[Rfam]
RNA sequence: CAGUCCUUUAACCCAACCCCGUGAGGUUGAGAAGGAAGUCGGAAUACAAUAUACGUAUGUUCUUUUUUAGAAAUACGUAUGCUUUUUUGGCCUUCUCAUCAUAUCAGGUGAGAAGGCCUUUUGUU
Numbered sequence: 001c002a003g004u005c006c007u008u009u010a011a012c013c014c015a016a017c018c019c020c021g022u023g024a025g026g027u028u029g030a031g032a033a034g035g036a037a038g039u040c041g042g043a044a045u046a047c048a049a050u051a052u053a054c055g056u057a058u059g060u061u062c063u064u065u066u067u068u069a070g071a072a073a074u075a076c077g078u079a080u081g082c083u084u085u086u087u088u089g090g091c092c093u094u095c096u097c098a099u100c101a102u103a104u105c106a107g108g109u110g111a112g113a114a115g116g117c118c119u120u121u122u123g124u125u
Stems, first nucleotide, its partner, number of pairs: 004036006014029005048083001050081009060071001089118012
RNA: PyrR binding site
Organism: Bacillus anthracis